[Rfam]
RNA sequence: AUGGAAGAGGUUCGCGAACUCCCUCUAUAAAAAACUAAGACUGC
Numbered sequence: 001a002u003g004g005a006a007g008a009g010g011u012u013c014g015c016g017a018a019c020u021c022c023c024u025c026u027a028u029a030a031a032a033a034a035c036u037a038a039g040a041c042u043g044c
Stems, first nucleotide, its partner, number of pairs: 006026005016036001